[Rfam]
RNA sequence: GUCGGUUACGGGGACAUGGUGCCGAAAACCUACAUCGGGAUGUUCGUCGGCGCGCUCUGCGCGCUGGCCGGUGUCCUCACGAUCGCCCUGCCGGUGCCCGUGAUCGUUAGCAAU
Numbered sequence: 001g002u003c004g005g006u007u008a009c010g011g012g013g014a015c016a017u018g019g020u021g022c023c024g025a026a027a028a029c030c031u032a033c034a035u036c037g038g039g040a041u042g043u044u045c046g047u048c049g050g051c052g053c054g055c056u057c058u059g060c061g062c063g064c065u066g067g068c069c070g071g072u073g074u075c076c077u078c079a080c081g082a083u084c085g086c087c088c089u090g091c092c093g094g095u096g097c098c099c100g101u102g103a104u105c106g107u108u109a110g111c112a113a114u
Stems, first nucleotide, its partner, number of pairs: 001114002004111001008107004014101002018097001021095002037077004050062002
RNA: Potassium channel RNA editing signal